Annotation
The record is a 76-nucleotide sequence from Cariama cristata, which matches "mir-17 microRNA precursor family" in Rfam. It scores 69 bits against the family's covariance model. This family represents the microRNA (miRNA) precursor mir-17, family, which includes mir-20, mir-91, and mir-103. miRNAs are transcribed as ~70nt precursors (modelled here) and subsequently processed by the Dicer enzyme to give a ~22nt product. In this case the mature sequence comes from the 3' arm of the precursor. The extents of the hairpin precursors are not generally known and are estimated based on hairpin prediction. Rfam links the family to the GO terms miRNA-mediated post-transcriptional gene silencing and RISC complex. Rfam 15.1 lists 4,687 matches to the family in 648 species.

RNA sequence: UGAGUUGUGCAAAAGUGCUUACAGUGCAGGUAGCGUUUAGGAUCUACUGCAGUAUAAGCACUUCUGGCAUUACUGU
Numbered sequence: 001u002g003a004g005u006u007g008u009g010c011a012a013a014a015g016u017g018c019u020u021a022c023a024g025u026g027c028a029g030g031u032a033g034c035g036u037u038u039a040g041g042a043u044c045u046a047c048u049g050c051a052g053u054a055u056a057a058g059c060a061c062u063u064c065u066g067g068c069a070u071u072a073c074u075g076u
Stems, first nucleotide, its partner, number of pairs: 004073002007070001009068002013063009023053001025051003029048005